Shown here is a 94-nucleotide RNA from Ovis aries, a member of the family "Small nucleolar RNA U83B". Rfam classes the family as a C/D-box small nucleolar RNA. About the family: U83B belongs to the C/D family of snoRNAs. U83B like U83A has no documented RNA target and they share the same host gene with the C/D box snoRNA U43 (RPL3). N.B. U83A/B/C have no sequence similarity with the U83 snoRNA that was cloned by Jady and Kiss (2000). A search with the family's covariance model found it, with a score of 103 bits. Pairs were carried over by alignment from the consensus structure.
RNA sequence: GCUGUUGAGUGAUGAGGCCGUGGAAUGAGUGCUGGGCACAGCGCCCGAGUCAGACUGCGGAAAUGUUCCUUGCUGCCUGCCUUCUGAGAAUAGC
Number, nucleotide and partner (000 for none) at each position: 001g094002c093003u092004g091005u090006u000007g000008a000009g000010u000011g000012a000013u000014g000015a000016g000017g000018c000019c000020g000021u000022g000023g000024a000025a000026u000027g000028a000029g000030u000031g000032c000033u000034g000035g000036g000037c000038a000039c000040a000041g000042c000043g000044c000045c000046c000047g000048a000049g000050u000051c000052a000053g000054a000055c000056u000057g000058c000059g000060g000061a000062a000063a000064u000065g000066u000067u000068c000069c000070u000071u000072g000073c000074u000075g000076c000077c000078u000079g000080c000081c000082u000083u000084c000085u000086g000087a000088g000089a000090a005091u004092a003093g002094c001